[Rfam]
RNA sequence: GGUUGUAAUUCCGGCAAUCUGGAGGCGUUCUGGACGCGGGUUCGAUUCCCGCCACCUCCACCUAAGAGUUUCGGAGAGUUCUUAGGUGGGGGUGUACUGGCUUCGACAGGGCGGGCAAAGGUGCGCAGGCAACUCGUCAGGCGAUCGACGUUAAUGAAGCAAAUCUCCAAACGCCAACGAUGAGCGUUUCGCAAUCGCCGCUUAA
Numbered sequence: 001g002g003u004u005g006u007a008a009u010u011c012c013g014g015c016a017a018u019c020u021g022g023a024g025g026c027g028u029u030c031u032g033g034a035c036g037c038g039g040g041u042u043c044g045a046u047u048c049c050c051g052c053c054a055c056c057u058c059c060a061c062c063u064a065a066g067a068g069u070u071u072c073g074g075a076g077a078g079u080u081c082u083u084a085g086g087u088g089g090g091g092g093u094g095u096a097c098u099g100g101c102u103u104c105g106a107c108a109g110g111g112c113g114g115g116c117a118a119a120g121g122u123g124c125g126c127a128g129g130c131a132a133c134u135c136g137u138c139a140g141g142c143g144a145u146c147g148a149c150g151u152u153a154a155u156g157a158a159g160c161a162a163a164u165c166u167c168c169a170a171a172c173g174c175c176a177a178c179g180a181u182g183a184g185c186g187u188u189u190c191g192c193a194a195u196c197g198c199c200g201c202u203u204a205a
Stems, first nucleotide, its partner, number of pairs: 001134005014124003026113003030109003036052005053094007135150004
RNA: permuted transfer-messenger RNA
Organism: Azospira oryzae